[Rfam]
RNA sequence: GGUCAUGAGUCCCAGUGUCAAACCCCGGUUUGCUGGGCGGCAACCCUCCUCGCGGUGGGGUGCCCCGGGUGAUGACCCGGCCCCCUCGAGCCGAGGGGGCAAGCGCGAGCG
Numbered sequence: 001g002g003u004c005a006u007g008a009g010u011c012c013c014a015g016u017g018u019c020a021a022a023c024c025c026c027g028g029u030u031u032g033c034u035g036g037g038c039g040g041c042a043a044c045c046c047u048c049c050u051c052g053c054g055g056u057g058g059g060g061u062g063c064c065c066c067g068g069g070u071g072a073u074g075a076c077c078c079g080g081c082c083c084c085c086u087c088g089a090g091c092c093g094a095g096g097g098g099g100c101a102a103g104c105g106c107g108a109g110c111g
Stems, first nucleotide, its partner, number of pairs: 001077004009038001011037006021030002039064003044060003048055002080100009
This 111-nucleotide RNA sequence from Phycicoccus flavus belongs to the Rfam family "SAM (S-adenosyl methionine) riboswitch aptamer". SAM-IV is a mRNA element that regulates gene expression via direct sensing of S-adenosylmethionine (SAM or AdoMet). SAM-IV riboswitches share conserved nucleotide positions with the previously described SAM-I riboswitches sequence analysis and molecular recognition experiments suggest that SAM-I and SAM-IV riboswitches share similar ligand binding sites, but have different scaffolds. The base pairs follow the family's consensus structure, which is taken from published work.